The record is a 137-nucleotide RNA sequence from Drosophila busckii, which matches "Drosophila small cajal body-specific RNA PsiU2-38.40.4" in Rfam.
The base pairs follow the family's consensus structure, which was predicted with RNAfold.
For this family Rfam cites "Novel small Cajal-body-specific RNAs identified in Drosophila: probing guide RNA function" (Deryusheva and Gall, RNA, 2013).
RNA sequence: GAGGCAGCCAUAAGAAAGCGUUUUAUUUGCAAGCUUAAUGAAGCGCUGAUACAAUGCUGCCAGAUUAAACACCAAAUAGCCAAGAACAAGUCAGCUUAGCGUAGUCCAUAAGCUGAUCUACACGUGGCAUUACAUUC
Numbered sequence: 001g002a003g004g005c006a007g008c009c010a011u012a013a014g015a016a017a018g019c020g021u022u023u024u025a026u027u028u029g030c031a032a033g034c035u036u037a038a039u040g041a042a043g044c045g046c047u048g049a050u051a052c053a054a055u056g057c058u059g060c061c062a063g064a065u066u067a068a069a070c071a072c073c074a075a076a077u078a079g080c081c082a083a084g085a086a087c088a089a090g091u092c093a094g095c096u097u098a099g100c101g102u103a104g105u106c107c108a109u110a111a112g113c114u115g116a117u118c119u120a121c122a123c124g125u126g127g128c129a130u131u132a133c134a135u136u137c
Base pairs, nucleotide, nucleotide: 004060005059006058007057008056017047018046019045020044021043022042023041024040025039026038028037029036079128080127081126082125088119091116092115093114094113095112096111097110098109
Dot-bracket structure: ...(((((........((((((((((.((......))))))))))))........)))))..................((((.....(..((((((((..........))))))))..).....)))).........
Rfam links the family to the GO terms Cajal body, RNA processing and nucleolus.